[Rfam]
RNA sequence: GCUGCGGGGGGCGAUGGAGUUCGCCUGAGCCUUAAAAAGCUGAUGACUCCUACCUUCGG
Numbered sequence: 001g002c003u004g005c006g007g008g009g010g011g012c013g014a015u016g017g018a019g020u021u022c023g024c025c026u027g028a029g030c031c032u033u034a035a036a037a038a039g040c041u042g043a044u045g046a047c048u049c050c051u052a053c054c055u056u057c058g059g
Stems, first nucleotide, its partner, number of pairs: 010025004016050006029040002032037001
Annotation
The record is a 59-nucleotide RNA sequence from Pelotomaculum isophthalicicum, which matches "Fluoride riboswitch aptamer (crcB RNA motif)" in Rfam. Lineage of the source: Bacteria > Bacillati > Clostridia > Eubacteriales > Pelotomaculum isophthalicicum. The family's consensus secondary structure is taken from published work.